[Rfam]
RNA sequence: GGGUGCUUGAGGCUGUCUGGCGUUAAGCAUUCGCGAGGUUCCAGAUGGACAAAAGCCCCAGGUGAUAUUUCUAUCAACCUGAGGCCAGCGUUCGAACCUAAGCAAUUCGGAUGUUAGUCUCUUCUUUGCAGGGAGGCAAGACAUGUGUAUAUCACUG
Dot-bracket structure: (((.((((..(.((((((((.(.(.............)).)))))))).)..)))))))((((((((....)))).))))(((((..(((((((((.........)))))))))..)))))...(.(.((...............)).).)......
Numbered sequence: 001g002g003g004u005g006c007u008u009g010a011g012g013c014u015g016u017c018u019g020g021c022g023u024u025a026a027g028c029a030u031u032c033g034c035g036a037g038g039u040u041c042c043a044g045a046u047g048g049a050c051a052a053a054a055g056c057c058c059c060a061g062g063u064g065a066u067a068u069u070u071c072u073a074u075c076a077a078c079c080u081g082a083g084g085c086c087a088g089c090g091u092u093c094g095a096a097c098c099u100a101a102g103c104a105a106u107u108c109g110g111a112u113g114u115u116a117g118u119c120u121c122u123u124c125u126u127u128g129c130a131g132g133g134a135g136g137c138a139a140g141a142c143a144u145g146u147g148u149a150u151a152u153c154a155c156u157g
Stems, first nucleotide, its partner, number of pairs: 001059003005056004011050001013048008022039001024038001060080004064075004081121005088114009125151001127149001129147002
A member of the RNA family "sok antitoxin (CssrC)" from Escherichia coli, 157 nucleotides long. The base pairs follow the family's consensus structure, which is taken from published work. Its family is annotated with mRNA binding in the Gene Ontology. Rfam 15.1 lists 305 matches to the family in 167 species. A reference for the family is Peng et al. (2011), "An integrated approach for finding overlooked genes in Shigella", PLoS One. Also identified in Shigella as CssrC. The match comes from Rfam's covariance-model search (104 bits).